[Rfam]
RNA sequence: UGCAGAUGAUGCCAAUCUCACGAUGGUCUGCCGAGCCCCUGCGGGGCUGACGACACCGCCACAUGGCUUCACUGAUGCGGCUGG
Numbered sequence: 001u002g003c004a005g006a007u008g009a010u011g012c013c014a015a016u017c018u019c020a021c022g023a024u025g026g027u028c029u030g031c032c033g034a035g036c037c038c039c040u041g042c043g044g045g046g047c048u049g050a051c052g053a054c055a056c057c058g059c060c061a062c063a064u065g066g067c068u069u070c071a072c073u074g075a076u077g078c079g080g081c082u083g084g
Stems, first nucleotide, its partner, number of pairs: 001079004
This 84-nucleotide RNA from Bombycilla garrulus belongs to the Rfam family "Small nucleolar RNA SNORD35". The match comes from Rfam's covariance-model search (62 bits). About the family: U35 is a C/D box snoRNA located in intron 6 of ribosomal protein L13A and intron 3 of ribosomal protein S11 in humans and at homologous positions in mouse and chicken ribosomal protein genes. U35 guides the methylation of 2'-O-ribose sites in 28S rRNA. The family is grouped with related families in Rfam's "SNORD35 clan". Rfam 15.1 lists 1,842 matches to the family in 634 species. By type it is a C/D-box small nucleolar RNA. The base pairs follow the family's consensus structure, which was predicted with PFOLD.